This 145-nucleotide RNA from Glycine max belongs to the Rfam family "small nucleolar RNA snoR137".
Rfam links the family to the GO terms nucleolus and RNA processing.
For this family Rfam cites "Mining small RNA sequencing data: a new approach to identify small nucleolar RNAs in Arabidopsis" (Chen and Wu, Nucleic Acids Res, 2009).
A search with the family's covariance model found it, with a score of 55 bits.

RNA sequence: GUUGCUUCUAUAGUUCUAUUAUAGUGAGUUCCCCGUUUUAAGGUUGGGGCAUUCACUCUUGGAAGCAUAUAGUUGUGAAAUUGCCAGUUUUAAACAGCAUCAUGUUUAUUUCUCUGCAUUGUGUUACCUGUCUGCUGGUAAAUCC
Numbered sequence: 001g002u003u004g005c006u007u008c009u010a011u012a013g014u015u016c017u018a019u020u021a022u023a024g025u026g027a028g029u030u031c032c033c034c035g036u037u038u039u040a041a042g043g044u045u046g047g048g049g050c051a052u053u054c055a056c057u058c059u060u061g062g063a064a065g066c067a068u069a070u071a072g073u074u075g076u077g078a079a080a081u082u083g084c085c086a087g088u089u090u091u092a093a094a095c096a097g098c099a100u101c102a103u104g105u106u107u108a109u110u111u112c113u114c115u116g117c118a119u120u121g122u123g124u125u126a127c128c129u130g131u132c133u134g135c136u137g138g139u140a141a142a143u144c145c
Base pairs, nucleotide, nucleotide: 003067004066005065006064007063008062025055026054027053028052029051030049031048032047033046083139084138085137086136087135088134096125097124098123100121102119103118104117